[Rfam]
RNA sequence: UUAAGCCUAGGAUGUUCGUUAAAGCCUUGAAAUUCAACCACCAAUAAGCAUCCGGGAGUCCAGGUUUUUAUGGCGAUGACGGGCCUCAAUAUAGUGGAAGUCAGAACUAUAGAAUAGGACACCCACCUAGGUGAUACCGGGUGUGAAUUUACAAGGUAACGACAUCUUGGGUAUAUA
Number, nucleotide and partner (000 for none) at each position: 001u000002u175003a174004a000005g172006c171007c170008u169009a168010g167011g166012a165013u164014g163015u162016u000017c161018g160019u159020u000021a000022a000023a000024g000025c000026c000027u000028u000029g000030a000031a000032a148033u147034u000035c145036a144037a142038c141039c140040a000041c000042c000043a000044a000045u000046a000047a000048g000049c000050a000051u000052c000053c000054g124055g123056g122057a000058g120059u119060c118061c117062a000063g115064g000065u114066u000067u113068u112069u111070a110071u109072g108073g107074c000075g000076a000077u000078g000079a101080c100081g000082g000083g000084c097085c096086u000087c094088a000089a000090u000091a000092u000093a000094g087095u000096g085097g084098a000099a000100g080101u079102c000103a000104g000105a000106a000107c073108u072109a071110u070111a069112g068113a067114a065115u063116a000117g061118g060119a059120c058121a000122c056123c055124c054125a000126c000127c000128u000129a000130g000131g000132u000133g000134a000135u000136a000137c000138c000139g000140g039141g038142u037143g000144u036145g035146a000147a033148u032149u000150u000151a000152c000153a000154a000155g000156g000157u000158a000159a019160c018161g017162a015163c014164a013165u012166c011167u010168u009169g008170g007171g006172u005173a000174u003175a002176u000177a000

Overview
The family of this 177-nucleotide RNA from Paramaledivibacter caminithermalis is "6S / SsrS RNA". Rfam classes the family as a non-coding RNA gene. Lineage of the source: Bacteria > Bacillota > Peptostreptococcales > Paramaledivibacter > Paramaledivibacter caminithermalis. The base pairs follow the family's consensus structure, which is taken from published work.